[Rfam]
RNA sequence: AAGCAAGAGCACACGGGGGAUGCCUAGGGUCUCAGAGGCGACGAAGGACGCGAUAAGCUGCGAUAAGGCUGGGGGAGGGGCACAUACCCGGUAAUCCCAGCAUUUCCGAAUGGGGCAACCCCGCGCAUGGAAGAUGCGUGAACCGACUCGCUUGACGAGCGGUGGCAAACGCCGGGAACUGAAACAUCUAAGUACCGGCAGGAAAAGAAAAUAACAAUGAUUCCCCAAGUAGUGGCGAGCGAACGGGGAGGAGCCCAAACCGGGUUGGUUACGGCCAGUCCGGGGUUGUAGGGCCGCGACAUCUGAUUGCAUCGAGGUAGCUGAACUGCUUGGGAAAGCAGGCCAUAGACGGUGAGAGCCCGGUAAGCGACACUUCUGAUGCACGGUAGCGGUACCCUGAGUAGGGCGGGGCCGGAGAAACCCCGUCUGAAGCGAGCGGCACCAUCCGCUAAGGCUACAUACUCCUGAGACACCGAUAGUGAACUAGUACCGUGAGGGAAAGGUGAAAAGAACCGGGAAUACCGGAGUGAAAAGAACCUGAAACCGUGUGCUUACAAG
Numbered sequence: 001a002a003g004c005a006a007g008a009g010c011a012c013a014c015g016g017g018g019g020a021u022g023c024c025u026a027g028g029g030u031c032u033c034a035g036a037g038g039c040g041a042c043g044a045a046g047g048a049c050g051c052g053a054u055a056a057g058c059u060g061c062g063a064u065a066a067g068g069c070u071g072g073g074g075g076a077g078g079g080g081c082a083c084a085u086a087c088c089c090g091g092u093a094a095u096c097c098c099a100g101c102a103u104u105u106c107c108g109a110a111u112g113g114g115g116c117a118a119c120c121c122c123g124c125g126c127a128u129g130g131a132a133g134a135u136g137c138g139u140g141a142a143c144c145g146a147c148u149c150g151c152u153u154g155a156c157g158a159g160c161g162g163u164g165g166c167a168a169a170c171g172c173c174g175g176g177a178a179c180u181g182a183a184a185c186a187u188c189u190a191a192g193u194a195c196c197g198g199c200a201g202g203a204a205a206a207g208a209a210a211a212u213a214a215c216a217a218u219g220a221u222u223c224c225c226c227a228a229g230u231a232g233u234g235g236c237g238a239g240c241g242a243a244c245g246g247g248g249a250g251g252a253g254c255c256c257a258a259a260c261c262g263g264g265u266u267g268g269u270u271a272c273g274g275c276c277a278g279u280c281c282g283g284g285g286u287u288g289u290a291g292g293g294c295c296g297c298g299a300c301a302u303c304u305g306a307u308u309g310c311a312u313c314g315a316g317g318u319a320g321c322u323g324a325a326c327u328g329c330u331u332g333g334g335a336a337a338g339c340a341g342g343c344c345a346u347a348g349a350c351g352g353u354g355a356g357a358g359c360c361c362g363g364u365a366a367g368c369g370a371c372a373c374u375u376c377u378g379a380u381g382c383a384c385g386g387u388a389g390c391g392g393u394a395c396c397c398u399g400a401g402u403a404g405g406g407c408g409g410g411g412c413c414g415g416a417g418a419a420a421c422c423c424c425g426u427c428u429g430a431a432g433c434g435a436g437c438g439g440c441a442c443c444a445u446c447c448g449c450u451a452a453g454g455c456u457a458c459a460u461a462c463u464c465c466u467g468a469g470a471c472a473c474c475g476a477u478a479g480u481g482a483a484c485u486a487g488u489a490c491c492g493u494g495a496g497g498g499a500a501a502g503g504u505g506a507a508a509a510g511a512a513c514c515g516g517g518a519a520u521a522c523c524g525g526a527g528u529g530a531a532a533a534g535a536a537c538c539u540g541a542a543a544c545c546g547u548g549u550g551c552u553u554a555c556a557a558g
Base pairs, nucleotide, nucleotide: 007553008552009551010550011549012548013547014546015545016544022538023503024502027474028473029471030470031469032468033467034466035465036463037462038166039165046107047106048105049062050061051060068101069100070099071098072097073096074095077089078088079087112121113120114119122140123139124138125137126136127135128134142163143162144161145160147159148158149157150156170201171199172198173197174196175195181188182187211218212217221459222249223248224247225246226245232240233239252456253455254454255453260283261282262281263280264279265278266277290398291397292396294392295391296390297389308383309382310381311380312379313378314376315375316374317373318372320368321367322366326341327340328339329338330337344348350362351361352360404428405427406426407425408424409423410422411421435450436449437448438447439446490497491496513525514524515523516522
RNA: Bacterial large subunit ribosomal RNA, nucleotides 9 to 566
Organism: Hymenobacter sp. 5317J-9